The record is a 72-nucleotide sequence from Gongylonema pulchrum, which matches "Small nucleolar RNA SNORD18" in Rfam.
The match comes from Rfam's covariance-model search (44 bits).
The base pairs follow the family's consensus structure, which was predicted with PFOLD.
For this family Rfam cites "Two different snoRNAs are encoded in introns of amphibian and human L1 ribosomal protein genes" (Prislei et al., Nucleic Acids Res, 1993).
NCBI's taxonomy places the organism under Eukaryota, Eumetazoa, Bilateria, Chromadorea, Gongylonema.
Clan: SNORD18 clan.
Rfam links the family to the GO terms RNA processing and nucleolus.
It is annotated as a C/D-box small nucleolar RNA.
[Rfam]
RNA sequence: UGGCAAUGACGAGACCAAUUUGGUCCGUGUUUCUGACGGAAUGAAUGACGUUAAACCGCAUGUUCUGAGCCA
Numbered sequence: 001u002g003g004c005a006a007u008g009a010c011g012a013g014a015c016c017a018a019u020u021u022g023g024u025c026c027g028u029g030u031u032u033c034u035g036a037c038g039g040a041a042u043g044a045a046u047g048a049c050g051u052u053a054a055a056c057c058g059c060a061u062g063u064u065c066u067g068a069g070c071c072a
Base pairs, nucleotide, nucleotide: 001072002071003070004069